This 248-nucleotide RNA from Desulfotruncus arcticus belongs to the Rfam family "T-box leader". The family's RNA type in Rfam is cis-regulatory leader. The family has 48 seed sequences and 19,395 matches in Rfam 15.1. Rfam links the family to the GO term tRNA binding. About the family: Uncharged tRNA acts as the effector for transcription antitermination of genes in the T-box leader family. T-boxes are found upstream of many aminoacyl-tRNA synthetase genes and some amino acid biosynthetic genes usually in Gram-positive bacteria. The anticodon of a specific tRNA base pairs to a specifier sequence within the T-box motif, and the NCCA acceptor tail of the tRNA base pairs to a conserved bulge in the T-box antiterminator hairpin.
[Rfam]
RNA sequence: GUAAAACUGUUGAUUGAGAAGAGUACAUGCUUUUGAUUACUUUUAAGAGAGUUGCAGACGGUGGGAAUGCAAUAAGUAAUGGGUAUGGAAUGGACUCAUAAAGGUGGAGGGAAAGGUCUUUGACUGAGUAAUGUCCAACGGGAUUUCCACCCGUUAUCAAGGGAAAGCGUAUGAUAGUACGCUAAUGAGUGGAUGCAUUUGCUUCAAUUUAGGUGGUACCGCAGAAGUUAUAAGCUUUUGUCCUAUUA
Numbered sequence: 001g002u003a004a005a006a007c008u009g010u011u012g013a014u015u016g017a018g019a020a021g022a023g024u025a026c027a028u029g030c031u032u033u034u035g036a037u038u039a040c041u042u043u044u045a046a047g048a049g050a051g052u053u054g055c056a057g058a059c060g061g062u063g064g065g066a067a068u069g070c071a072a073u074a075a076g077u078a079a080u081g082g083g084u085a086u087g088g089a090a091u092g093g094a095c096u097c098a099u100a101a102a103g104g105u106g107g108a109g110g111g112a113a114a115g116g117u118c119u120u121u122g123a124c125u126g127a128g129u130a131a132u133g134u135c136c137a138a139c140g141g142g143a144u145u146u147c148c149a150c151c152c153g154u155u156a157u158c159a160a161g162g163g164a165a166a167g168c169g170u171a172u173g174a175u176a177g178u179a180c181g182c183u184a185a186u187g188a189g190u191g192g193a194u195g196c197a198u199u200u201g202c203u204u205c206a207a208u209u210u211a212g213g214u215g216g217u218a219c220c221g222c223a224g225a226a227g228u229u230a231u232a233a234g235c236u237u238u239u240g241u242c243c244u245a246u247u248a
Base pairs, nucleotide, nucleotide: 007103008102015098016097017096018095026087027086028085029084030083031082040076041075042074051073052072053071054070055069056068105137106136107135108134110132139153140152141151192205193204195202196201210245211244212243213242221241222240223239224238225237226236227235228234229233
A search with the family's covariance model found it, with a score of 114 bits.